[Rfam]
RNA: c-di-GMP-II-GAG riboswitch aptamer
Organism: Deinococcus yavapaiensis
RNA sequence: AAGUCAUCGGGAGCUGAGAAGGUACUUCUAAGCACGGUCACCAGCAGAAGUACCGGAGCGAAUGGUGAGACCGGCCCGAAGCUUC
Numbered sequence: 001a002a003g004u005c006a007u008c009g010g011g012a013g014c015u016g017a018g019a020a021g022g023u024a025c026u027u028c029u030a031a032g033c034a035c036g037g038u039c040a041c042c043a044g045c046a047g048a049a050g051u052a053c054c055g056g057a058g059c060g061a062a063u064g065g066u067g068a069g070a071c072c073g074g075c076c077c078g079a080a081g082c083u084u085c
Base pairs, nucleotide, nucleotide: 002084003083005081007079008078009077010076011075013059014058021054022053023052024051025050026049027048028047036072037071038068039067040066041065042064